[Rfam]
RNA sequence: UUGAGCGUGCACUCCCAGGUGGCGUCGGCGUCGAGCAGGCUCUGUUCGCCGAAGUGGUCGCCGUCGCCGAGGGUGCCGAGCCGGGUGGGUUCCCCGUACGCCCCGCUGCCGGUCUUCUGCACCUUGCCGUGCGCGAGCAGGUGGAUGUGGUCGGCCGGCGUGCCCUCCUCGGCGAGCACCUCUCCGGCCUCGAAGUCGCGCUGGGCGAAGCGGCCGGCCAGGGCCGUCAGCACCUCCAUGUCCUCGAAACCGCGCAGCACGGCGAGUUCGCCGAGUUCGCGCGGGAUCACCUGGACCCGCGAACCGGUCUUGACGAACUCGAUGCGCCCGUCCCCGACGGUGUAGGUCAGGCGCCGGUUGACCCGGUAGACACCGCCCUCGGUCUGCACCCAGGGCAGGACCCUGAGCAACCACCGGGAGGUGAUGCCCUGCAUCUGCGGAACGGACUUGGUGGUGGUGGCGAGGUUCCGUGCGGCGGCGGUGCCGAGGCUGAGCUGCUGCCCCUGCUG
Numbered sequence: 001u002u003g004a005g006c007g008u009g010c011a012c013u014c015c016c017a018g019g020u021g022g023c024g025u026c027g028g029c030g031u032c033g034a035g036c037a038g039g040c041u042c043u044g045u046u047c048g049c050c051g052a053a054g055u056g057g058u059c060g061c062c063g064u065c066g067c068c069g070a071g072g073g074u075g076c077c078g079a080g081c082c083g084g085g086u087g088g089g090u091u092c093c094c095c096g097u098a099c100g101c102c103c104c105g106c107u108g109c110c111g112g113u114c115u116u117c118u119g120c121a122c123c124u125u126g127c128c129g130u131g132c133g134c135g136a137g138c139a140g141g142u143g144g145a146u147g148u149g150g151u152c153g154g155c156c157g158g159c160g161u162g163c164c165c166u167c168c169u170c171g172g173c174g175a176g177c178a179c180c181u182c183u184c185c186g187g188c189c190u191c192g193a194a195g196u197c198g199c200g201c202u203g204g205g206c207g208a209a210g211c212g213g214c215c216g217g218c219c220a221g222g223g224c225c226g227u228c229a230g231c232a233c234c235u236c237c238a239u240g241u242c243c244u245c246g247a248a249a250c251c252g253c254g255c256a257g258c259a260c261g262g263c264g265a266g267u268u269c270g271c272c273g274a275g276u277u278c279g280c281g282c283g284g285g286a287u288c289a290c291c292u293g294g295a296c297c298c299g300c301g302a303a304c305c306g307g308u309c310u311u312g313a314c315g316a317a318c319u320c321g322a323u324g325c326g327c328c329c330g331u332c333c334c335c336g337a338c339g340g341u342g343u344a345g346g347u348c349a350g351g352c353g354c355c356g357g358u359u360g361a362c363c364c365g366g367u368a369g370a371c372a373c374c375g376c377c378c379u380c381g382g383u384c385u386g387c388a389c390c391c392a393g394g395g396c397a398g399g400a401c402c403c404u405g406a407g408c409a410a411c412c413a414c415c416g417g418g419a420g421g422u423g424a425u426g427c428c429c430u431g432c433a434u435c436u437g438c439g440g441a442a443c444g445g446a447c448u449u450g451g452u453g454g455u456g457g458u459g460g461c462g463a464g465g466u467u468c469c470g471u472g473c474g475g476c477g478g479c480g481g482u483g484c485c486g487a488g489g490c491u492g493a494g495c496u497g498c499u500g501c502c503c504c505u506g507c508u509g
Base pairs, nucleotide, nucleotide: 007389008388009387010386011385014382015381018328019327021325025322026321027320028319031316032315036312037311038310039309041307042306045303046302047301048300049299051297054233055232058229060227061226063224064223065111066110068108075103078101080099082096083095084094085093117222118221122217123216127212130209131206132205134203135202140197143196150191153189154188155187156186157185158184161178162177165174167172235295236294237293240290241289244286245285251281252280253279254278256277257276258275262269329342330341331340332339351379353377355375356374357373363369391431392430393429394428395427396426397425400422401421403418404417407415437476438475440473442471443470444469445468446467447465448464449463451461452460477508478507480503481502484500486498487496488495